Rfam assigns this 138-nucleotide sequence from Caldibacillus thermoamylovorans to the family "PyrR binding site".

[Rfam]
RNA sequence: UUGCCCUUUUAACAGACAGUCCAGAGAGGCUGGAAAGGGGAAGGCUGAGUGUCAGUCGGAAGUAGAACCUGCUUCAGGCUGUGAAUGCAACGCUACUCAUUUACCUCUUUCCAUAUACUGGAAAGAGGUUUUUUUAUA
Numbered sequence: 001u002u003g004c005c006c007u008u009u010u011a012a013c014a015g016a017c018a019g020u021c022c023a024g025a026g027a028g029g030c031u032g033g034a035a036a037g038g039g040g041a042a043g044g045c046u047g048a049g050u051g052u053c054a055g056u057c058g059g060a061a062g063u064a065g066a067a068c069c070u071g072c073u074u075c076a077g078g079c080u081g082u083g084a085a086u087g088c089a090a091c092g093c094u095a096c097u098c099a100u101u102u103a104c105c106u107c108u109u110u111c112c113a114u115a116u117a118c119u120g121g122a123a124a125g126a127g128g129u130u131u132u133u134u135u136a137u138a
Base pairs, nucleotide, nucleotide: 004039005038006037007036008035009034017032018031019030020029021028053081054080055079056078057077059075060074061073062072063071064070065069099133103129104128105127106126107125108124109123110122111121112120

By type it is a cis-regulatory element. This family represents the PyrR binding site and terminator structure. The source organism's lineage runs through Bacteria, Bacillota, Bacilli, Bacillaceae and Caldibacillus. Pairs were carried over by alignment from the consensus structure, which is taken from published work.